RNA sequence: AUAUUGAUACUUGCGGUUUGAACGCUUCACAGCAUUGACCGCCACGCCAUAAGCAUGGGGUGAGGUGAGAUUCCUAUGA
Numbered sequence: 001a002u003a004u005u006g007a008u009a010c011u012u013g014c015g016g017u018u019u020g021a022a023c024g025c026u027u028c029a030c031a032g033c034a035u036u037g038a039c040c041g042c043c044a045c046g047c048c049a050u051a052a053g054c055a056u057g058g059g060g061u062g063a064g065g066u067g068a069g070a071u072u073c074c075u076a077u078g079a
Stems, first nucleotide, its partner, number of pairs: 012076001013042006043062003047058003063075003

The family of this 79-nucleotide sequence from Candidatus Galacturonatibacter soehngenii is "pemK RNA". A search with the family's covariance model found it, with a score of 51 bits. The organism belongs to Candidatus Galacturonatibacter, within Bacteria.